[Rfam]
RNA sequence: GAACCUCAUGAGACCAGGCCGUCGCACCCCAUGCGGCGGCAUCACUUCGACGAAGAAGGA
Dot-bracket structure: .................(((((((((.....)))))))))....................
Rfam assigns this 60-nucleotide RNA sequence to the family "Rothia-sucC RNA".
The family's consensus secondary structure is taken from published work.
Rfam's curators put it in the seed alignment.